[Rfam]
RNA sequence: GUCGCAGUAGCUCAGCUGGAUAGAGCAUUCGCCUUCUAAGCGAACGGUCGGGGGUUCGAAUCCCUCCUGCGACG
Numbered sequence: 001g002u003c004g005c006a007g008u009a010g011c012u013c014a015g016c017u018g019g020a021u022a023g024a025g026c027a028u029u030c031g032c033c034u035u036c037u038a039a040g041c042g043a044a045c046g047g048u049c050g051g052g053g054g055u056u057c058g059a060a061u062c063c064c065u066c067c068u069g070c071g072a073c074g
Stems, first nucleotide, its partner, number of pairs: 001073007010026004028044005050066005